Nucleotides: 107
Stems, first nucleotide, its partner, number of pairs: 002102001005099005016032004034087003037083002041081001043079001047074006
Number, partner (000 for none) and nucleotide at each position: 001000g002102c003000a004000a005099c006098u007097c008096u009095g010000g011000a012000a013000a014000g015000c016032a017031g018030c019029u020000g021000g022000u023000c024000c025000a026000c027000c028000c029019g030018g031017c032016u033000c034087a035086c036085c037083g038082a039000c040000g041081g042000u043079g044000c045000a046000a047074g048073g049072g050071c051070g052069c053000c054000c055000c056000g057000a058000u059000u060000c061000a062000u063000c064000u065000c066000g067000g068000c069052g070051c071050g072049u073048c074047u075000g076000a077000a078000u079043c080000u081041c082038u083037c084000a085036g086035g087034u088000u089000c090000c091000g092000u093000a094000a095009c096008a097007g098006a099005g100000c101000g102002g103000g104000g105000a106000g107000g

Background
The record is a 107-nucleotide RNA sequence from Leucobacter luti, which matches "Glycine riboswitch aptamer" in Rfam. Rfam's curators write: This family represents the bacterial glycine riboswitch. Glycine riboswitches usually consist of two metabolite-binding aptamers domains with similar structures in tandem. The aptamers cooperatively bind glycine to regulate the expression of downstream genes. In Bacillus subtilis, this riboswitch is found upstream of the gcvT operon which controls glycine degradation. NCBI's taxonomy places the organism under Bacteria, Actinomycetes, Micrococcales, Microbacteriaceae, Leucobacter.